Rfam assigns this 191-nucleotide sequence from Loigolactobacillus backii to the family "6S / SsrS RNA". By type it is a non-coding RNA gene. From the family's description: E. coli 6S RNA was the first non coding RNA to be sequenced, but its function was unknown until recently. It consists of 184 nucleotides that fold into an extended hairpin structure with a large single-stranded internal bulge. The 6S RNA specifically associates with RNA polymerase holoenzyme containing the sigma70 specificity factor. This interaction represses expression from a sigma70-dependent promoter during stationary phase. 6S RNA homologs have recently been identified in most bacterial genomes. Many Gram-positive species have two copies of 6S RNA. In Bacillus subtilis, both copies appear to interact with RNA polymerase holoenzyme containing the housekeeping sigma factor and be expressed during different stages of growth. In many proteobacteria, 6S RNA may be processed from a transcript encoding homologs of the E. coli YgfA protein which is a putative 5-formyltetrahydrofolate cycloligase activity. A search with the family's covariance model found it, with a score of 63 bits. Lineage of the source: Bacteria > Bacillati > Bacillota > Bacilli > Loigolactobacillus.
[Rfam]
RNA sequence: GAUUUUCUGAGGUGUUCGAUUAUUCCUAUUAUGGUGUUGACCGAUCAAGUAAUUAAAUUUGGGAUCGGCUUUCAAUCUUUAGAUCAAGCAUGCCUUUUCACGAGGAAGCUAGUAUCUUUAGGUAGCUGAGCCCACCUGCCUUUUCGCGGGUUCAAUCCGAAGGGAUUAACAACGGCACUACCAGAUUAUCU
Numbered sequence: 001g002a003u004u005u006u007c008u009g010a011g012g013u014g015u016u017c018g019a020u021u022a023u024u025c026c027u028a029u030u031a032u033g034g035u036g037u038u039g040a041c042c043g044a045u046c047a048a049g050u051a052a053u054u055a056a057a058u059u060u061g062g063g064a065u066c067g068g069c070u071u072u073c074a075a076u077c078u079u080u081a082g083a084u085c086a087a088g089c090a091u092g093c094c095u096u097u098u099c100a101c102g103a104g105g106a107a108g109c110u111a112g113u114a115u116c117u118u119u120a121g122g123u124a125g126c127u128g129a130g131c132c133c134a135c136c137u138g139c140c141u142u143u144u145c146g147c148g149g150g151u152u153c154a155a156u157c158c159g160a161a162g163g164g165a166u167u168a169a170c171a172a173c174g175g176c177a178c179u180a181c182c183a184g185a186u187u188a189u190c191u
Stems, first nucleotide, its partner, number of pairs: 002189002006185004012178004017174002033158002038154003041150002061133003065129006076122003081117002088109002093105004